A member of the RNA family "L31-Actinobacteria ribosomal protein leader" from Actinopolymorpha singaporensis, 46 nucleotides long. A search with the family's covariance model found it, with a score of 46 bits. The literature on the family includes a 2020 paper in BMC Microbiol by Eckert and Weinberg, "Discovery of 20 novel ribosomal leader candidates in bacteria and archaea". The family's RNA type in Rfam is cis-regulatory leader.
[Rfam]
RNA sequence: CCGGCCCCGGUUCACGUCCCGUCCGAAGGCGCGACGACCCGGUGCC
Numbered sequence: 001c002c003g004g005c006c007c008c009g010g011u012u013c014a015c016g017u018c019c020c021g022u023c024c025g026a027a028g029g030c031g032c033g034a035c036g037a038c039c040c041g042g043u044g045c046c
Stems, first nucleotide, its partner, number of pairs: 003046003007042004015036004020031004